RNA sequence: CUGGGGGGACGACCCCCAGACCCCCGGCAGUCGGCCUGGGGGGACGACCCCC
Number, nucleotide and partner (000 for none) at each position: 001c000002u019003g000004g017005g016006g015007g014008g013009a000010c000011g000012a000013c008014c007015c006016c005017c004018a000019g002020a000021c000022c000023c000024c000025c000026g000027g000028c000029a000030g000031u000032c000033g000034g000035c000036c000037u000038g000039g052040g051041g050042g049043g048044a000045c000046g000047a000048c043049c042050c041051c040052c039